[Rfam]
Record summary
Rfam assigns this 71-nucleotide sequence from Winmispira thermophila to the family "tRNA". The match comes from Rfam's covariance-model search (60 bits). Pairs were carried over by alignment from the consensus structure, which is taken from published work.

RNA sequence: UCCCCGGUGGUGUAAUGGUAGCACCGCAGACUCUGGAUCUGCUUGUGGGGGUUCGAGUCCUCCCCGGGGAA
Numbered sequence: 001u002c003c004c005c006g007g008u009g010g011u012g013u014a015a016u017g018g019u020a021g022c023a024c025c026g027c028a029g030a031c032u033c034u035g036g037a038u039c040u041g042c043u044u045g046u047g048g049g050g051g052u053u054c055g056a057g058u059c060c061u062c063c064c065c066g067g068g069g070a071a
Base pairs, nucleotide, nucleotide: 001070002069003068004067005066006065007064010024011023012022013021026042027041028040029039030038047063048062049061050060051059
Clan: tRNA clan.